[Rfam]
Rfam assigns this 62-nucleotide RNA sequence from Caenorhabditis brenneri to the family "mir-57 microRNA precursor family".

RNA sequence: UACCCUGUAGAUAGAGCUGUGUGUUUGGAAUAUACCGUACACAAGCUAGACUACAAGGUGAA
Numbered sequence: 001u002a003c004c005c006u007g008u009a010g011a012u013a014g015a016g017c018u019g020u021g022u023g024u025u026u027g028g029a030a031u032a033u034a035c036c037g038u039a040c041a042c043a044a045g046c047u048a049g050a051c052u053a054c055a056a057g058g059u060g061a062a
Stems, first nucleotide, its partner, number of pairs: 001060004007054004012050001015047004020043005027036002
For this family Rfam cites "miRBase: from microRNA sequences to function" (Kozomara et al., Nucleic Acids Res, 2019).
Lineage of the source: Eukaryota > Opisthokonta > Ecdysozoa > Rhabditidae > Caenorhabditis.
The base pairs follow the family's consensus structure, which was predicted with RNAalifold.
Gene Ontology terms of the family: miRNA-mediated post-transcriptional gene silencing and RISC complex.